[Rfam]
Nucleotides: 062
Base pairs, nucleotide, nucleotide: 008041009040010039012036013035014034015033016031018029019028023059024058025057026056027055
Number, partner (000 for none) and nucleotide at each position: 001000u002000a003000g004000g005000g006000a007000g008041g009040u010039c011000a012036g013035g014034g015033u016031u017000c018029g019028g020000a021000u022000c023059c024058c025057c026056u027055c028019c029018c030000c031016a032000a033015g034014c035013c036012c037000a038000g039010g040009g041008u042000a043000a044000c045000a046000u047000u048000g049000a050000a051000a052000a053000u054000g055027g056026a057025g058024g059023g060000u061000g062000a
Rfam assigns this 62-nucleotide RNA from Carlito syrichta to the family "Gag/pol translational readthrough site". The literature on the family includes a 1994 paper in EMBO J by Wills et al., "Pseudoknot-dependent read-through of retroviral gag termination codons: importance of sequences in the spacer and loop 2". Rfam 15.1 lists 3,368 matches to the family in 94 species. Its family is annotated with viral translational readthrough in the Gene Ontology. Taxonomically the source falls in Carlito (Eukaryota, Teleostomi, Amniota, Mammalia). The family's RNA type in Rfam is cis-regulatory element. Pairs were carried over by alignment from the consensus structure, which is taken from published work.